The family of this 189-nucleotide RNA from Brevibacillus laterosporus is "Lysine riboswitch aptamer". The organism belongs to Brevibacillus laterosporus, within Bacteria. Rfam describes the family as follows. Riboswitches are metabolite binding domains within certain messenger RNAs that serve as precision sensors for their corresponding targets.

RNA sequence: UGGUGAGGUAGAGGUUGCGGUAUUUAAGAGUAUGCUGGACGAGACCCAGAGAUGUUGUAGACUCCAUCAGAAAGGAAAGACCGCCGAAGCUUGUACAAAGACUCUGUGAUGUACAGGCUGGGGCUGUUUCCGAAAGGGACAGAACUGUCACGUUUAUUUGCCGAAUAAGCGUGUUGUGCUAUCUUCAUG
Numbered sequence: 001u002g003g004u005g006a007g008g009u010a011g012a013g014g015u016u017g018c019g020g021u022a023u024u025u026a027a028g029a030g031u032a033u034g035c036u037g038g039a040c041g042a043g044a045c046c047c048a049g050a051g052a053u054g055u056u057g058u059a060g061a062c063u064c065c066a067u068c069a070g071a072a073a074g075g076a077a078a079g080a081c082c083g084c085c086g087a088a089g090c091u092u093g094u095a096c097a098a099a100g101a102c103u104c105u106g107u108g109a110u111g112u113a114c115a116g117g118c119u120g121g122g123g124c125u126g127u128u129u130c131c132g133a134a135a136g137g138g139a140c141a142g143a144a145c146u147g148u149c150a151c152g153u154u155u156a157u158u159u160g161c162c163g164a165a166u167a168a169g170c171g172u173g174u175u176g177u178g179c180u181a182u183c184u185u186c187a188u189g
Stems, first nucleotide, its partner, number of pairs: 006184006017084005023078003033069002036066004088119010120146002124142007149173008